[Rfam]
RNA sequence: GACUGGAAGACUAUGAUGUAGAAUUCUUUCCAAGCACAUAUCUGACUGCUUUAUGUGGAAAUCAACUAUUCCUGAGUCUUCAAGUC
Numbered sequence: 001g002a003c004u005g006g007a008a009g010a011c012u013a014u015g016a017u018g019u020a021g022a023a024u025u026c027u028u029u030c031c032a033a034g035c036a037c038a039u040a041u042c043u044g045a046c047u048g049c050u051u052u053a054u055g056u057g058g059a060a061a062u063c064a065a066c067u068a069u070u071c072c073u074g075a076g077u078c079u080u081c082a083a084g085u086c
Stems, first nucleotide, its partner, number of pairs: 001086004006081001008079004